A member of the RNA family "mir-1002 microRNA precursor family" from Drosophila navojoa, 86 nucleotides long.
[Rfam]
RNA sequence: UGAAAAUUCAGCACUUAAGUAGUUGAUACAAAGGCGAAUUCCUUAAAAUAUCGCAUUGUGUGACCUACUUAAAUGACAGAUUUUCA
Number, nucleotide and partner (000 for none) at each position: 001u000002g000003a084004a083005a082006a081007u080008u079009c000010a000011g000012c075013a074014c000015u072016u071017a070018a069019g068020u067021a066022g065023u000024u000025g000026a061027u060028a059029c058030a057031a056032a000033g000034g054035c053036g052037a051038a000039u000040u000041c000042c000043u000044u000045a000046a000047a000048a000049u000050a000051u037052c036053g035054c034055a000056u031057u030058g029059u028060g027061u026062g000063a000064c000065c022066u021067a020068c019069u018070u017071a016072a015073a000074u013075g012076a000077c000078a000079g008080a007081u006082u005083u004084u003085c000086a000